[Rfam]
RNA sequence: UGAUGCCAAGGUCAAAAGUCAUAAACCACGUUGUGCUUGCACAUAAGUGGUUUUAUGACUUUAUGACCCGCCUCAAUAUGAGAAUAAAAGCAGGGCGCAGCCCUGCGAUAUUCGAAUGUGGGGCAGAAUUGUGGAAGUGCGCAGCACGAAACAAUUCGUCAGGCAUCU
Numbered sequence: 001u002g003a004u005g006c007c008a009a010g011g012u013c014a015a016a017a018g019u020c021a022u023a024a025a026c027c028a029c030g031u032u033g034u035g036c037u038u039g040c041a042c043a044u045a046a047g048u049g050g051u052u053u054u055a056u057g058a059c060u061u062u063a064u065g066a067c068c069c070g071c072c073u074c075a076a077u078a079u080g081a082g083a084a085u086a087a088a089a090g091c092a093g094g095g096c097g098c099a100g101c102c103c104u105g106c107g108a109u110a111u112u113c114g115a116a117u118g119u120g121g122g123g124c125a126g127a128a129u130u131g132u133g134g135a136a137g138u139g140c141g142c143a144g145c146a147c148g149a150a151a152c153a154a155u156u157c158g159u160c161a162g163g164c165a166u167c168u
Stems, first nucleotide, its partner, number of pairs: 002167006010068004016061007023053007032043004072123003076119004082113004090106007126157007137147004
The record is a 168-nucleotide RNA from Firmicutes bacterium CAG:646, which matches "Clostridiales-1 RNA" in Rfam. The base pairs follow the family's consensus structure, which is taken from published work. It scores 129 bits against the family's covariance model. By type it is a small RNA.